[Rfam]
Alpha operon ribosome binding site: a 94-nucleotide sequence from Azomonas macrocytogenes. Lineage of the source: Bacteria > Pseudomonadota > Gammaproteobacteria > Pseudomonadales > Azomonas. It is annotated as a cis-regulatory element. Rfam's curators write: The bacterial alpha operon ribosome binding site is surrounded by this complex pseudoknotted structure. Translation of the mRNA produces 4 ribosomal protein products, one of which (S4) acts as a translational repressor by binding to the nested pseudoknot region. The mechanism of repression is thought to involve a conformational switch in the pseudoknot region and ribosome entrapment.
RNA sequence: CAAGAUCUACCCUUUUCUUGGCUUCCGAGGGCUGGAUCGCUGUCAUUUGGAGUUUCACUGAAUGGCCCGUAUUGCAGGCGUCAAUAUUCCAGAU
Numbered sequence: 001c002a003a004g005a006u007c008u009a010c011c012c013u014u015u016u017c018u019u020g021g022c023u024u025c026c027g028a029g030g031g032c033u034g035g036a037u038c039g040c041u042g043u044c045a046u047u048u049g050g051a052g053u054u055u056c057a058c059u060g061a062a063u064g065g066c067c068c069g070u071a072u073u074g075c076a077g078g079c080g081u082c083a084a085u086a087u088u089c090c091a092g093a094u
Stems, first nucleotide, its partner, number of pairs: 004038006010031004017078003020067002
Dot-bracket structure: ...((((((((((...[[[[[......)))).))))))...........................]]........]]]................
It scores 45 bits against the family's covariance model. A reference for the family is Schlax et al. (2001), "Translational repression of the Escherichia coli alpha operon mRNA: importance of an mRNA conformational switch and a ternary entrapment complex", J Biol Chem. Gene Ontology term of the family: ribosome binding.